[Rfam]
RNA sequence: GGGGGCGACCGGCUUCGACGCAGGUCGCGAAGCCUUCGGUGCAUGCAGAGCUGCGGUUCGCUCUUAAAACUGGUCGCAGAUUCAUAAUUGCCAACGACAGCAAUUACGCUCUCGCUGCUUAAGCAGUGAGCCCUCUGCCCGGAUUUGUCUGUGGAUCCGGAGCCGAAAGGCGCGCGGAGGGUCAUGAAACACGGAAUCGUGCGCAUUCUAGUCUGUGGGAUGCGCGCUAAAUUAAAGCAGAAUCGCCAUGUCGUCAUCCUGUCUGUCGGAGGGCGGUGCGGUUAAAGCCAAAAGACAAACUACGCAUGUAGAUCCGGUGGUCUAGGUACUGCGGACGCGGGUUCAAUUCCCGCCGCCUCCACCA
Numbered sequence: 001g002g003g004g005g006c007g008a009c010c011g012g013c014u015u016c017g018a019c020g021c022a023g024g025u026c027g028c029g030a031a032g033c034c035u036u037c038g039g040u041g042c043a044u045g046c047a048g049a050g051c052u053g054c055g056g057u058u059c060g061c062u063c064u065u066a067a068a069a070c071u072g073g074u075c076g077c078a079g080a081u082u083c084a085u086a087a088u089u090g091c092c093a094a095c096g097a098c099a100g101c102a103a104u105u106a107c108g109c110u111c112u113c114g115c116u117g118c119u120u121a122a123g124c125a126g127u128g129a130g131c132c133c134u135c136u137g138c139c140c141g142g143a144u145u146u147g148u149c150u151g152u153g154g155a156u157c158c159g160g161a162g163c164c165g166a167a168a169g170g171c172g173c174g175c176g177g178a179g180g181g182u183c184a185u186g187a188a189a190c191a192c193g194g195a196a197u198c199g200u201g202c203g204c205a206u207u208c209u210a211g212u213c214u215g216u217g218g219g220a221u222g223c224g225c226g227c228u229a230a231a232u233u234a235a236a237g238c239a240g241a242a243u244c245g246c247c248a249u250g251u252c253g254u255c256a257u258c259c260u261g262u263c264u265g266u267c268g269g270a271g272g273g274c275g276g277u278g279c280g281g282u283u284a285a286a287g288c289c290a291a292a293a294g295a296c297a298a299a300c301u302a303c304g305c306a307u308g309u310a311g312a313u314c315c316g317g318u319g320g321u322c323u324a325g326g327u328a329c330u331g332c333g334g335a336c337g338c339g340g341g342u343u344c345a346a347u348u349c350c351c352g353c354c355g356c357c358u359c360c361a362c363c364a
Stems, first nucleotide, its partner, number of pairs: 001360007019333005025328001028325001032321003036317004042308005047064005052078007111130008131181006138160002141158003148195006197229001199227006212241003245282003249278006257270003261300002264297004337353005

A member of the RNA family "transfer-messenger RNA" from Acidithiobacillus ferrooxidans, 364 nucleotides long. Rfam classes the family as a non-coding RNA gene. Gene Ontology term of the family: RNA catabolic process. Bacterial tmRNA, also known as 10Sa RNA or SsrA, is named for its dual tRNA and mRNA-like properties.